RNA: ZMP/ZTP riboswitch aptamer (pfl RNA motif)
RNA sequence: CAUGGCCCCCGUGACUGACGGGCAGGUGGGAGACCACCGGGGAGCGGGGAAAACGCCGAAAAAUGCCGUCCGUCUGGGCAGUGCCG
Numbered sequence: 001c002a003u004g005g006c007c008c009c010c011g012u013g014a015c016u017g018a019c020g021g022g023c024a025g026g027u028g029g030g031a032g033a034c035c036a037c038c039g040g041g042g043a044g045c046g047g048g049g050a051a052a053a054c055g056c057c058g059a060a061a062a063a064u065g066c067c068g069u070c071c072g073u074c075u076g077g078g079c080a081g082u083g084c085c086g
Base pairs, nucleotide, nucleotide: 003053007049008048009047010046011045012044015041016040017074018073019072020071021070026037027036028035029034064080065079066078067077